[Rfam]
RNA sequence: CUGCCGGGACGACCCGGCCACGACAGGGCAAUAGUCAGGACGACCUGC
Numbered sequence: 001c002u003g004c005c006g007g008g009a010c011g012a013c014c015c016g017g018c019c020a021c022g023a024c025a026g027g028g029c030a031a032u033a034g035u036c037a038g039g040a041c042g043a044c045c046u047g048c
Base pairs, nucleotide, nucleotide: 003018004017005016006015007014008013036047037046038045039044

The family of this 48-nucleotide RNA sequence from Sulfitobacter noctilucicola is "Guanidine-II riboswitch aptamer (mini-ykkC)". NCBI's taxonomy places the organism under Bacteria, Alphaproteobacteria, Rhodobacterales, Roseobacteraceae, Sulfitobacter. The family's consensus secondary structure is taken from published work.